Rfam assigns this 88-nucleotide sequence from Moraxella caviae to the family "sRNA-Xcc1". It is annotated as a small RNA. It scores 65 bits against the family's covariance model.
RNA sequence: GACCGACGGUGCGACGAAUACAAUACCCAGCAAUGGGGAAUAAGUCCGCCAUUCUGUUUUAUGGUUUUGAGCCGUUGGUCGCCCUAUU
Number, nucleotide and partner (000 for none) at each position: 001g080002a079003c078004c077005g076006a075007c074008g073009g072010u000011g000012c000013g046014a045015c044016g000017a041018a000019u000020a000021c000022a000023a000024u000025a000026c037027c036028c035029a000030g000031c000032a000033a000034u000035g028036g027037g026038g000039a000040a000041u017042a000043a000044g015045u014046c013047c000048g065049c064050c063051a062052u061053u000054c000055u000056g000057u000058u000059u000060u000061a052062u051063g050064g049065u048066u000067u000068u000069g000070a000071g000072c009073c008074g007075u006076u005077g004078g003079u002080c001081g000082c000083c000084c000085u000086a000087u000088u000

Overview
For this family Rfam cites "sRNA-Xcc1, an integron-encoded transposon- and plasmid-transferred trans-acting sRNA, is under the positive control of the key virulence regulators HrpG and HrpX of Xanthomonas campestris pathovar campestris" (Chen et al., RNA Biol, 2011). The base pairs follow the family's consensus structure, which was predicted with RNAalifold.